[Rfam]
RNA sequence: AGAAUUAUGUUGGGGGUCAUAGUAGGAACGUUCUCUUCGUGACCCCUGUCAGAUUUUAUCUAAAUCUGUAAUCCUACU
Numbered sequence: 001a002g003a004a005u006u007a008u009g010u011u012g013g014g015g016g017u018c019a020u021a022g023u024a025g026g027a028a029c030g031u032u033c034u035c036u037u038c039g040u041g042a043c044c045c046c047u048g049u050c051a052g053a054u055u056u057u058a059u060c061u062a063a064a065u066c067u068g069u070a071a072u073c074c075u076a077c078u
Stems, first nucleotide, its partner, number of pairs: 013046006021078007028040003050068007